A member of the RNA family "c-di-AMP riboswitch aptamer (ydaO/yuaA leader)" from Dethiobacter sp., 135 nucleotides long.
[Rfam]
RNA sequence: AUGCGUAGCAAGCCGAAUCCCCCUAAUAAGAGGGGGUACGGGGGACCCGCGAUAGUGGGGUGAAACCUUUAAAAGAGGUGGGGCACUCCUGCCCAAGCCCGUCAGCUAACCCCGAAGGCGAAAAGGAGGAAUACG
Numbered sequence: 001a002u003g004c005g006u007a008g009c010a011a012g013c014c015g016a017a018u019c020c021c022c023c024u025a026a027u028a029a030g031a032g033g034g035g036g037u038a039c040g041g042g043g044g045a046c047c048c049g050c051g052a053u054a055g056u057g058g059g060g061u062g063a064a065a066c067c068u069u070u071a072a073a074a075g076a077g078g079u080g081g082g083g084c085a086c087u088c089c090u091g092c093c094c095a096a097g098c099c100c101g102u103c104a105g106c107u108a109a110c111c112c113c114g115a116a117g118g119c120g121a122a123a124a125g126g127a128g129g130a131a132u133a134c135g
Stems, first nucleotide, its partner, number of pairs: 012119003019036006039114005048057002058100003066078004081094004